[Rfam]
Nucleotides: 382
Stems, first nucleotide, its partner, number of pairs: 005381002007378001008322007016037006042376003046373005051238005056074004061070002080233005085106006107124001108122005125228002128168004137158003143153003174226002176222003191210008242258003262291006292307006324361005331356004
Number, partner (000 for none) and nucleotide at each position: 001000a002000u003000a004000c005381u006380c007378g008322a009321g010320u011319a012318a013317u014316c015000g016037c017036u018035g019034c020033g021032g022000c023000c024000c025000a026000u027000c028000g029000a030000g031000g032021u033020c034019g035018u036017a037016g038000a039000g040000g041000a042376a043375a044374g045000u046373c047372c048371a049370u050369g051238c052237u053236c054235a055234c056074a057073c058072g059071g060000c061070u062069c063000u064000g065000u066000g067000a068000u069062g070061a071059c072058c073057g074056u075000a076000g077000u078000g079000u080233u081232c082231g083230u084229g085106c086105u087104a088103c089102c090101u091000g092000a093000a094000a095000a096000a097000a098000u099000a100000a101090g102089g103088g104087u105086a106085g107124g108122c109121a110120a111119g112118u113000g114000u115000a116000a117000a118112g119111c120110u121109u122108g123000a124107c125228g126227g127000c128168g129167g130166a131165a132000g133000g134000a135000a136000c137158u138157c139156c140000u141000a142000a143153g144152u145151c146000a147000u148000u149000u150000u151145g152144a153143u154000a155000u156139g157138g158137a159000c160000g161000a162000a163000a164000c165131u166130u167129c168128c169000u170000g171000a172000a173000a174226g175225u176222g177221c178220c179000a180000c181000a182000g183000u184000g185000a186000c187000g188000g189000a190000g191210c192209u193208u194207a195206u196205a197204a198203u199000g200000a201000a202000a203198g204197u205196u206195a207194u208193a209192a210191g211000g212000u213000g214000g215000a216000a217000c218000g219000a220178g221177g222176u223000a224000a225175a226174c227126c228125c229084c230083a231082u232081g233080a234055g235054u236053g237052a238051g239000a240000a241000a242258c243257c244256c245000a246000a247000a248000u249000u250000a251000u252000g253000g254000u255000a256244g257243g258242g259000g260000c261000a262291c263290u264289c265288u266287c267286c268000u269000g270000a271000a272000g273000g274000a275000a276000a277000c278000g279000a280000a281000c282000g283000g284000a285000u286267g287266g288265a289264g290263g291262g292307a293306c294305g295304g296303u297302a298000a299000u300000a301000a302297u303296a304295c305294c306293g307292u308000a309000g310000a311000u312000a313000g314000a315000u316014g317013a318012u319011u320010a321009c322008u323000a324361c325360c326359u327358g328357g329000u330000c331356g332355u333354a334353c335000g336000a337000g338000g339000c340000g341000a342000u343000a344000g345000c346000u347000g348000u349000u350000u351000g352000a353334g354333u355332a356331c357328u358327c359326a360325g361324g362000a363000a364000c365000a366000a367000a368000a369050c370049a371048u372047g373046g374044c375043u376042u377000a378007c379000u380006g381005a382000u